[Rfam]
RNA sequence: UCACUUCACAUUAAGAUCAGGAUCGCUAUAUGGAGCGUGCCGGUUUCGGUCGGCUAUGGCGAUAAAUUGCGGUGUGCAAUAGGCACAGCGGACCCGGGGGCAGUACCCGGCGGCUCCACCAUAUACGCCCGUUGUCGGGGGUUGGAUCAUGGGGCCGAACCAGGAUCGACGUGUGUUGAAAGGCACUGUUUUCGCCCGGGCUGAGUAACCCGCAUAAGGCUCAAAACACACAAGUGCCAACGACAACGAAGCACUCGCUCUCGCAGCGUAAUUUUACGGCCUAACGGCCCGAAUUUACAAAGCUAAAGCGCGGUUGGACCCACCGGGCAACAGAAGCGGAUUCC
Dot-bracket structure: ......................................(((((......)))))...(((((......(((((((........(((.(((...(((((.......)))))(((((((.................................)))))))............)))))).......)))))))..)))))((((.[[[....))))........]]].......................................................................................((((.[[.[[.))))............]].]]..
Numbered sequence: 001u002c003a004c005u006u007c008a009c010a011u012u013a014a015g016a017u018c019a020g021g022a023u024c025g026c027u028a029u030a031u032g033g034a035g036c037g038u039g040c041c042g043g044u045u046u047c048g049g050u051c052g053g054c055u056a057u058g059g060c061g062a063u064a065a066a067u068u069g070c071g072g073u074g075u076g077c078a079a080u081a082g083g084c085a086c087a088g089c090g091g092a093c094c095c096g097g098g099g100g101c102a103g104u105a106c107c108c109g110g111c112g113g114c115u116c117c118a119c120c121a122u123a124u125a126c127g128c129c130c131g132u133u134g135u136c137g138g139g140g141g142u143u144g145g146a147u148c149a150u151g152g153g154g155c156c157g158a159a160c161c162a163g164g165a166u167c168g169a170c171g172u173g174u175g176u177u178g179a180a181a182g183g184c185a186c187u188g189u190u191u192u193c194g195c196c197c198g199g200g201c202u203g204a205g206u207a208a209c210c211c212g213c214a215u216a217a218g219g220c221u222c223a224a225a226a227c228a229c230a231c232a233a234g235u236g237c238c239a240a241c242g243a244c245a246a247c248g249a250a251g252c253a254c255u256c257g258c259u260c261u262c263g264c265a266g267c268g269u270a271a272u273u274u275u276a277c278g279g280c281c282u283a284a285c286g287g288c289c290c291g292a293a294u295u296u297a298c299a300a301a302g303c304u305a306a307a308g309c310g311c312g313g314u315u316g317g318a319c320c321c322a323c324c325g326g327g328c329a330a331c332a333g334a335a336g337c338g339g340a341u342u343c344c
Stems, first nucleotide, its partner, number of pairs: 039054005058196005069189007084175003088172003094110005111157007197212004202223003311325004316342002319339002